Annotation: The family of this 86-nucleotide RNA sequence from Desulfotruncus arcticus is "c-di-GMP-I riboswitch aptamer". Rfam 15.1 lists 5,092 matches to the family in 1,772 species. Its family is annotated with cyclic-di-GMP binding in the Gene Ontology. NCBI's taxonomy places the organism under Bacteria, Bacillota, Clostridia, Eubacteriales, Desulfotruncus arcticus.

RNA sequence: ACGAGAAAAAGGGAAACCUGCCGAAAGGUAAGGAAAAAAAACCAUCUGCCUAAAGUUUUAUAACCAAGAUUGAUCAGGUUGCCGAA
Numbered sequence: 001a002c003g004a005g006a007a008a009a010a011g012g013g014a015a016a017c018c019u020g021c022c023g024a025a026a027g028g029u030a031a032g033g034a035a036a037a038a039a040a041a042c043c044a045u046c047u048g049c050c051u052a053a054a055g056u057u058u059u060a061u062a063a064c065c066a067a068g069a070u071u072g073a074u075c076a077g078g079u080u081g082c083c084g085a086a
Stems, first nucleotide, its partner, number of pairs: 017032001019030004040080004045076001047073001048070001050068001055064003